[Rfam]
Nucleotides: 117
Base pairs, nucleotide, nucleotide: 001082002081003080004079009041011040012039013038014037015036016035024033025032042069043068044067047065048064049063051060085106086105087104088103089102090101091100092099093098
Number, partner (000 for none) and nucleotide at each position: 001082g002081g003080u004079c005000a006000c007000g008000a009041g010000u011040a012039u013038c014037a015036g016035c017000a018000u019000g020000u021000u022000c023000g024033a025032g026000c027000c028000c029000c030000g031000g032025c033024u034000c035016g036015c037014u038013g039012a040011u041009c042069g043068g044067c045000a046000a047065c048064c049063c050000u051060c052000g053000c054000g055000c056000g057000g058000c059000g060051g061000u062000g063049g064048g065047g066000u067044g068043c069042c070000c071000c072000g073000g074000g075000u076000g077000a078000c079004g080003a081002c082001c083000a084000g085106g086105c087104g088103g089102u090101g091100c092099c093098c094000g095000c096000g097000c098093g099092g100091g101090c102089g103088c104087c105086g106085c107000a108000a109000g110000c111000g112000c113000u114000a115000g116000u117000c
Overview: This 117-nucleotide RNA from Nocardia aurantiaca belongs to the Rfam family "SAM (S-adenosyl methionine) riboswitch aptamer". Taxonomically the source falls in Nocardia (Bacteria, Bacillati, Actinomycetes, Mycobacteriales).